RNA sequence: GUAGGCUACGGGGAUAUGCACCCAGUGACCAUAGGGGGCAAGAUCGUGGGGUCGCUCUGUGCCAUCGCCGGCGUCCUGACCAUCGCGUUGCCGGUCCCGGUGAUUGUGUCCAAC
Number, nucleotide and partner (000 for none) at each position: 001g114002u113003a000004g111005g110006c000007u108008a107009c106010g105011g104012g000013g000014a101015u100016a000017u000018g097019c000020a095021c094022c000023c000024a000025g000026u000027g000028a000029c000030c000031a000032u000033a000034g000035g000036g000037g077038g076039c000040a074041a000042g000043a000044u000045c000046g000047u000048g000049g063050g062051g000052u000053c000054g000055c000056u000057c000058u000059g000060u000061g000062c050063c049064a000065u000066c000067g000068c000069c000070g000071g000072c000073g000074u040075c000076c038077u037078g000079a000080c000081c000082a000083u000084c000085g000086c000087g000088u000089u000090g000091c000092c000093g000094g021095u020096c000097c018098c000099g000100g015101u014102g000103a000104u011105u010106g009107u008108g007109u000110c005111c004112a000113a002114c001
The record is a 114-nucleotide RNA from Phyllostomus discolor, which matches "Potassium channel RNA editing signal" in Rfam. The family has 85 seed sequences and 14,095 matches in Rfam 15.1. The base pairs follow the family's consensus structure, which is taken from published work.